[Rfam]
RNA sequence: CACUCAUCCAGAGCGGUGGAGGGACCGGCCCGUUGAAACCGCAGCAACCCUCGUAUGCGUCGCCGCAUACGAACGGUGCUAAGUCCGGCAGAGGUGUUCUGGAAGAUGAGCG
Numbered sequence: 001c002a003c004u005c006a007u008c009c010a011g012a013g014c015g016g017u018g019g020a021g022g023g024a025c026c027g028g029c030c031c032g033u034u035g036a037a038a039c040c041g042c043a044g045c046a047a048c049c050c051u052c053g054u055a056u057g058c059g060u061c062g063c064c065g066c067a068u069a070c071g072a073a074c075g076g077u078g079c080u081a082a083g084u085c086c087g088g089c090a091g092a093g094g095u096g097u098u099c100u101g102g103a104a105g106a107u108g109a110g111c112g
Base pairs, nucleotide, nucleotide: 001112003110004109005108006107007106008105013042014041015040016039017038021031022030023029025088026087027086028085043080044079045078046077048076049075051072052071053070054069055068056067057066084104089101090100091099092098093097

The record is a 112-nucleotide sequence from Chloroflexus aurantiacus, which matches "SAM riboswitch aptamer (S box leader)" in Rfam. Rfam's curators put it in the seed alignment. The organism belongs to Chloroflexus aurantiacus, within Bacteria.